[Rfam]
RNA: Eukaryotic large subunit ribosomal RNA, nucleotides 923 to 1416
RNA sequence: AUUGCUAAAGUUUCUUUUAGGAUAGUAGUGUUGUUCUUUAGUUUUAUAAAAUAAAGCGAAUAAUUAGGGACUUGGGGGCGCUUUUUAACCUUUAUUUAUUUUUAAACUUUAAAUAUAUAAGAAGCUUUUAUUAUUUAAUUAAAUAUAGGUAUUCGAAUAUACUAAUAUUAGUAGGCUAUUUUUAAUAAGUAGAAUUAACGAUGUGGGAUAAAUUGAAUGUAGGGUUAAGGUAUUGGAGUAGACGUUUAUUAAAUACUAUAAAAGGUAUUAAUAUAUUUUAAUAGUAGGACGGUAGCUAUAGAAGUUGGAAUUUGUUAAGGAUUAUAUAAUAAUUUAUUUAUUAAAUAUAUUAGCCUUAAAAAUAGAUAGCGUUUAAGCGUUCUAUUUAUACUCCGCCUUUAGAGUAAAAAUAAUACUUUAAGGAGUAAGCGGUUGUAGAGGUUAGUAAUGAAAUUUAGGGCGUAAGCCCGGGUUGAAUAGCCUUUAGUAUAGAU
Numbered sequence: 001a002u003u004g005c006u007a008a009a010g011u012u013u014c015u016u017u018u019a020g021g022a023u024a025g026u027a028g029u030g031u032u033g034u035u036c037u038u039u040a041g042u043u044u045u046a047u048a049a050a051a052u053a054a055a056g057c058g059a060a061u062a063a064u065u066a067g068g069g070a071c072u073u074g075g076g077g078g079c080g081c082u083u084u085u086u087a088a089c090c091u092u093u094a095u096u097u098a099u100u101u102u103u104a105a106a107c108u109u110u111a112a113a114u115a116u117a118u119a120a121g122a123a124g125c126u127u128u129u130a131u132u133a134u135u136u137a138a139u140u141a142a143a144u145a146u147a148g149g150u151a152u153u154c155g156a157a158u159a160u161a162c163u164a165a166u167a168u169u170a171g172u173a174g175g176c177u178a179u180u181u182u183u184a185a186u187a188a189g190u191a192g193a194a195u196u197a198a199c200g201a202u203g204u205g206g207g208a209u210a211a212a213u214u215g216a217a218u219g220u221a222g223g224g225u226u227a228a229g230g231u232a233u234u235g236g237a238g239u240a241g242a243c244g245u246u247u248a249u250u251a252a253a254u255a256c257u258a259u260a261a262a263a264g265g266u267a268u269u270a271a272u273a274u275a276u277u278u279u280a281a282u283a284g285u286a287g288g289a290c291g292g293u294a295g296c297u298a299u300a301g302a303a304g305u306u307g308g309a310a311u312u313u314g315u316u317a318a319g320g321a322u323u324a325u326a327u328a329a330u331a332a333u334u335u336a337u338u339u340a341u342u343a344a345a346u347a348u349a350u351u352a353g354c355c356u357u358a359a360a361a362a363u364a365g366a367u368a369g370c371g372u373u374u375a376a377g378c379g380u381u382c383u384a385u386u387u388a389u390a391c392u393c394c395g396c397c398u399u400u401a402g403a404g405u406a407a408a409a410a411u412a413a414u415a416c417u418u419u420a421a422g423g424a425g426u427a428a429g430c431g432g433u434u435g436u437a438g439a440g441g442u443u444a445g446u447a448a449u450g451a452a453a454u455u456u457a458g459g460g461c462g463u464a465a466g467c468c469c470g471g472g473u474u475g476a477a478u479a480g481c482c483u484u485u486a487g488u489a490u491a492g493a494u
Stems, first nucleotide, its partner, number of pairs: 001433006011024001013022003027169007042122007054110001055108002061104003066099001068097003073094006124150004129145004175199001177197002180194005204215003219396002222393002225390001229386003238383001243379003263357003268353009284341005290314003296308002315319001320335001324333002397423009434489001436486008445478002453473002459468003